[Rfam]
RNA sequence: GAACUACAACUCUCUGGAUUCCUCGAGUCGUUCAAUUCUCGUGCAAUCCUCAUCGGUUGUCGAAGAGA
Number, nucleotide and partner (000 for none) at each position: 001g000002a000003a000004c062005u000006a060007c059008a058009a057010c056011u000012c000013u000014c000015u000016g049017g048018a047019u000020u000021c000022c000023u000024c000025g040026a039027g000028u000029c000030g000031u000032u000033c000034a000035a000036u000037u000038c000039u026040c025041g000042u000043g000044c000045a000046a000047u018048c017049c016050u000051c000052a000053u000054c000055g000056g010057u009058u008059g007060u006061c000062g004063a000064a000065g000066a000067g000068a000
RNA: Trypanosomatid snoRNA TB10Cs5H3